RNA sequence: UAUCACUGGAAUAUAAGAGGUAGAGAGGUUCUUACCCAGGUGAUAGACUAGAUGAAGUCUAUCACCUGGGUAAGAACCUCUCUACCUCUGGUUACAUAU
Numbered sequence: 001u002a003u004c005a006c007u008g009g010a011a012u013a014u015a016a017g018a019g020g021u022a023g024a025g026a027g028g029u030u031c032u033u034a035c036c037c038a039g040g041u042g043a044u045a046g047a048c049u050a051g052a053u054g055a056a057g058u059c060u061a062u063c064a065c066c067u068g069g070g071u072a073a074g075a076a077c078c079u080c081u082c083u084a085c086c087u088c089u090g091g092u093u094a095c096a097u098a099u
Stems, first nucleotide, its partner, number of pairs: 016089007024081015040065006

mir-36 microRNA precursor family: a 99-nucleotide RNA from Salmo trutta. It scores 51 bits against the family's covariance model. The organism belongs to Salmo, within Eukaryota. Its Rfam clan is "mir-36 clan". Its family is annotated with RISC complex and miRNA-mediated post-transcriptional gene silencing in the Gene Ontology. Rfam 15.1 lists 199 matches to the family in 31 species.